[Rfam]
RNA sequence: GAAAGGCGGCCGUAAGGCAGCUGGGUGUCUAUGCACACCCCAAUUAGA
Dot-bracket structure: ....(((.(((....))).)))((((((......))))))........

The record is a 48-nucleotide sequence, which matches "S4-Clostridia ribosomal protein leader" in Rfam.
The family's consensus secondary structure is taken from published work.
The literature on the family includes a 2020 paper in BMC Microbiol by Eckert and Weinberg, "Discovery of 20 novel ribosomal leader candidates in bacteria and archaea".